[Rfam]
RNA sequence: CUCUUAUCCAGAGCGGUGGAGGGAAAGGCCCUAUGAAACCCGGCAACCGGUCGGCUUUAGUCGACAAGGUGCUAAUUCCUUCAGGAAGUAUUUCCUGGCAGAUGGGAG
Numbered sequence: 001c002u003c004u005u006a007u008c009c010a011g012a013g014c015g016g017u018g019g020a021g022g023g024a025a026a027g028g029c030c031c032u033a034u035g036a037a038a039c040c041c042g043g044c045a046a047c048c049g050g051u052c053g054g055c056u057u058u059a060g061u062c063g064a065c066a067a068g069g070u071g072c073u074a075a076u077u078c079c080u081u082c083a084g085g086a087a088g089u090a091u092u093u094c095c096u097g098g099c100a101g102a103u104g105g106g107a108g
Base pairs, nucleotide, nucleotide: 001108002107003106004105005104006103007102008101013041015040016039017038021031022030023029025081026080027079028078042073043072044071045070047069048068050065051064052063053062077100082097083096084095085094086093087092
RNA: SAM riboswitch aptamer (S box leader)
Organism: Desulforamulus ruminis